A member of the RNA family "Mammalian CPEB3 ribozyme" from Crocodylus porosus, 79 nucleotides long.
RNA sequence: AGAGGUUACAAGUUUGAGGCCAUAGUAGAACUGCUCACAGUGUAGCCUGUCAGAUUCUAAUGAAUCUGAAAAUUCAGCU
Numbered sequence: 001a002g003a004g005g006u007u008a009c010a011a012g013u014u015u016g017a018g019g020c021c022a023u024a025g026u027a028g029a030a031c032u033g034c035u036c037a038c039a040g041u042g043u044a045g046c047c048u049g050u051c052a053g054a055u056u057c058u059a060a061u062g063a064a065u066c067u068g069a070a071a072a073u074u075c076a077g078c079u
Stems, first nucleotide, its partner, number of pairs: 018047003024079003028075003032042002051068007

Taxonomically the source falls in Crocodylus (Eukaryota, Opisthokonta, Metazoa, Bilateria).